This 80-nucleotide RNA sequence from Mola mola belongs to the Rfam family "mir-181 microRNA precursor family". It scores 63 bits against the family's covariance model.
RNA sequence: AGGUCACAAUCAACAUUCAUUGCUGUCGCUGGGUUGGACUGUAGAAAAGCUCACUGAACAAUGAGUGCAACUGUGGCCCA
Numbered sequence: 001a002g003g004u005c006a007c008a009a010u011c012a013a014c015a016u017u018c019a020u021u022g023c024u025g026u027c028g029c030u031g032g033g034u035u036g037g038a039c040u041g042u043a044g045a046a047a048a049g050c051u052c053a054c055u056g057a058a059c060a061a062u063g064a065g066u067g068c069a070a071c072u073g074u075g076g077c078c079c080a
Stems, first nucleotide, its partner, number of pairs: 002079002004076005014067009026057003030053002033050003

The base pairs follow the family's consensus structure, which was predicted with PFOLD.
On this family, see Ambros, Cell 2001: "microRNAs: tiny regulators with great potential".
The organism belongs to Mola, within Eukaryota.
Rfam links the family to the GO terms miRNA-mediated post-transcriptional gene silencing and RISC complex.